FMN riboswitch aptamer (RFN element): a 211-nucleotide sequence from Paenibacillus sp. Leaf72. Rfam's curators write: The RFN element is a highly conserved domain that is found frequently in the 5'-untranslated regions of prokaryotic mRNAs that encode for flavin mononucleotide (FMN) biosynthesis and transport proteins.
RNA sequence: ACUUUCCUUCGGGGUCGGGUGAAAUUCCCAACCGGCGGUGAUCAGGAGGCUGUCUAAGCGCUUUGAACGAUGAAGCGACAUAGCUGCUGCCUGUCAGUCCGUGACCCGUGUACAUUCCAUUCAGAGCGUGUGAACGCAUGAGCGGUUUGUAUACGGCUGACCUGGUGCAAUUCCGGGACCGACAGUACAGUCUGGAUGGGAGAAGGAGACA
Numbered sequence: 001a002c003u004u005u006c007c008u009u010c011g012g013g014g015u016c017g018g019g020u021g022a023a024a025u026u027c028c029c030a031a032c033c034g035g036c037g038g039u040g041a042u043c044a045g046g047a048g049g050c051u052g053u054c055u056a057a058g059c060g061c062u063u064u065g066a067a068c069g070a071u072g073a074a075g076c077g078a079c080a081u082a083g084c085u086g087c088u089g090c091c092u093g094u095c096a097g098u099c100c101g102u103g104a105c106c107c108g109u110g111u112a113c114a115u116u117c118c119a120u121u122c123a124g125a126g127c128g129u130g131u132g133a134a135c136g137c138a139u140g141a142g143c144g145g146u147u148u149g150u151a152u153a154c155g156g157c158u159g160a161c162c163u164g165g166u167g168c169a170a171u172u173c174c175g176g177g178a179c180c181g182a183c184a185g186u187a188c189a190g191u192c193u194g195g196a197u198g199g200g201a202g203a204a205g206g207a208g209a210c211a
Stems, first nucleotide, its partner, number of pairs: 003209008017029003031191002033181002035102004106156009161177005183194003